This 78-nucleotide RNA from Cyanistes caeruleus belongs to the Rfam family "mir-458 microRNA precursor family". For this family Rfam cites "A microRNA catalog of the developing chicken embryo identified by a deep sequencing approach" (Glazov et al., Genome Res, 2008). Rfam 15.1 lists 1,011 matches to the family in 491 species.

RNA sequence: GUGCAGAUGGCAGCGCCAUUUCCAGAGCUAUAAACACUCUCACUGUCAUAGCUCUUGGCAUGGUACUGCCAUAAGCAC
Number, nucleotide and partner (000 for none) at each position: 001g000002u077003g076004c075005a000006g000007a072008u071009g070010g000011c068012a067013g066014c000015g064016c063017c062018a061019u060020u000021u058022c000023c000024a055025g054026a053027g052028c051029u050030a049031u048032a000033a000034a000035c000036a000037c000038u000039c000040u000041c000042a000043c000044u000045g000046u000047c000048a031049u030050a029051g028052c027053u026054c025055u024056u000057g000058g021059c000060a019061u018062g017063g016064u015065a000066c013067u012068g011069c000070c009071a008072u007073a000074a000075g004076c003077a002078c000
Rfam links the family to the GO terms RISC complex and miRNA-mediated post-transcriptional gene silencing.